Rfam assigns this 121-nucleotide RNA sequence from Anisodus acutangulus to the family "MIR396 microRNA precursor family".

RNA sequence: UUUUGUACUUUUCCACAGCUUUCUUGAACUGCAUCUCAAAAACUCAAUUUUUGUUUUUGUUUUUGGAGAUGAAGAGAAUUAAAUUGUUGCGGUUCAAUAAAGCUGUGGGAAGAUACACAUA
Numbered sequence: 001u002u003u004u005g006u007a008c009u010u011u012u013c014c015a016c017a018g019c020u021u022u023c024u025u026g027a028a029c030u031g032c033a034u035c036u037c038a039a040a041a042a043c044u045c046a047a048u049u050u051u052u053g054u055u056u057u058u059g060u061u062u063u064u065g066g067a068g069a070u071g072a073a074g075a076g077a078a079u080u081a082a083a084u085u086g087u088u089g090c091g092g093u094u095c096a097a098u099a100a101a102g103c104u105g106u107g108g109g110a111a112g113a114u115a116c117a118c119a120u121a
Base pairs, nucleotide, nucleotide: 004117005116006115007114013108014107015106017104018103019102020101021100022099024097025096026095027094029092030091031090032089033088
Background: The match comes from Rfam's covariance-model search (90 bits). Taxonomically the source falls in Anisodus (Eukaryota, Viridiplantae, Tracheophyta, eudicotyledons).